[Rfam]
RNA sequence: ACAAUCAAAUAAAACAAAGCCUAUAUAAUGUCUUGAUCUGGUUGACAGUUUCUACCUAACGCCGUAAACGUUAGACUAUAGGAAGACUAAUUUACAAU
Numbered sequence: 001a002c003a004a005u006c007a008a009a010u011a012a013a014a015c016a017a018a019g020c021c022u023a024u025a026u027a028a029u030g031u032c033u034u035g036a037u038c039u040g041g042u043u044g045a046c047a048g049u050u051u052c053u054a055c056c057u058a059a060c061g062c063c064g065u066a067a068a069c070g071u072u073a074g075a076c077u078a079u080a081g082g083a084a085g086a087c088u089a090a091u092u093u094a095c096a097a098u
Base pairs, nucleotide, nucleotide: 020082021081022080023079024078025077029047030046031045032044056074057073058072059071060070061069
Purine riboswitch aptamer: a 98-nucleotide RNA from Pediococcus stilesii. The match comes from Rfam's covariance-model search (63 bits). Rfam links the family to the GO term purine nucleobase biosynthetic process. Riboswitches are metabolite binding domains within certain messenger RNAs that serve as precision sensors for their corresponding targets. Taxonomically the source falls in Pediococcus (Bacteria, Bacillati, Bacillota, Lactobacillaceae).